Lysine riboswitch aptamer: a 177-nucleotide sequence from Orenia marismortui.
The match comes from Rfam's covariance-model search (123 bits).
RNA sequence: AAAUGGGGUAGAGGAGCAAUCUGUCAAUAGUAUUUUCAUGGAGAGGGAGAAAACUUGAUGAUAUGAAAAGAAAGGGGCAAUUGCCGAAACAAUAAUAUUAUUCUCAAUUUUAUUGUUGGGUCUAUGCUUAAUAGGUAUAGAACUGUCACUAAAAUCUAGUGAAGCGCUAUCUCAUUU
Numbered sequence: 001a002a003a004u005g006g007g008g009u010a011g012a013g014g015a016g017c018a019a020u021c022u023g024u025c026a027a028u029a030g031u032a033u034u035u036u037c038a039u040g041g042a043g044a045g046g047g048a049g050a051a052a053a054c055u056u057g058a059u060g061a062u063a064u065g066a067a068a069a070g071a072a073a074g075g076g077g078c079a080a081u082u083g084c085c086g087a088a089a090c091a092a093u094a095a096u097a098u099u100a101u102u103c104u105c106a107a108u109u110u111u112a113u114u115g116u117u118g119g120g121u122c123u124a125u126g127c128u129u130a131a132u133a134g135g136u137a138u139a140g141a142a143c144u145g146u147c148a149c150u151a152a153a154a155u156c157u158a159g160u161g162a163a164g165c166g167c168u169a170u171c172u173c174a175u176u177u
Base pairs, nucleotide, nucleotide: 006172007171008170009169010168011167016084017083018082019081020080022079023078024077025076033069034068035067036066037065038064039063040062088117089116090115091114092113093112094111095110097108098107099106118144119143121141122140123139124138125137126136127135128134146162147161148160149159150158151157